[Rfam]
RNA sequence: UAUAGUCUUUGAGGUCAGGUGAGAUAGUCAUAUCAAUUCCUAACCGGCGGUGAUAGUCCGCAAGCCUGUGACGGCACGAUACGGUGCAAUUCCGUAACCGACAGUAAAGUCUGGAUGAGAAAAGACACAA
Number, nucleotide and partner (000 for none) at each position: 001u000002a000003u000004a000005g126006u125007c124008u123009u122010u121011g000012a000013g000014g000015u000016c000017a041018g040019g039020u000021g000022a000023g000024a000025u000026a000027g000028u000029c000030a000031u000032a000033u000034c000035a000036a000037u000038u000039c019040c018041u017042a000043a110044c109045c100046g099047g061048c060049g059050g058051u000052g000053a000054u000055a000056g098057u097058c050059c049060g048061c047062a000063a000064g000065c000066c074067u000068g000069u000070g000071a000072c000073g000074g066075c000076a000077c000078g000079a000080u096081a095082c094083g093084g092085u000086g000087c000088a000089a000090u000091u000092c084093c083094g082095u081096a080097a057098c056099c046100g045101a000102c113103a112104g111105u000106a000107a000108a000109g044110u043111c104112u103113g102114g000115a000116u000117g000118a000119g000120a000121a010122a009123a008124g007125a006126c005127a000128c000129a000130a000
A member of the RNA family "FMN riboswitch aptamer (RFN element)" from Veillonella montpellierensis, 130 nucleotides long. Pairs were carried over by alignment from the consensus structure, which is taken from published work. Its family is annotated with FMN binding in the Gene Ontology. The match comes from Rfam's covariance-model search (86 bits).